[Rfam]
RNA sequence: GGCCCGGUGGCGCAAAGGUAGCGCUUUCGACUCCAGAUCGAAUGGUUGGGAGUUCGAUUCUCUCCUGGGUCA
Numbered sequence: 001g002g003c004c005c006g007g008u009g010g011c012g013c014a015a016a017g018g019u020a021g022c023g024c025u026u027u028c029g030a031c032u033c034c035a036g037a038u039c040g041a042a043u044g045g046u047u048g049g050g051a052g053u054u055c056g057a058u059u060c061u062c063u064c065c066u067g068g069g070u071c072a
Stems, first nucleotide, its partner, number of pairs: 001071007010024004026042005048064005
RNA: tRNA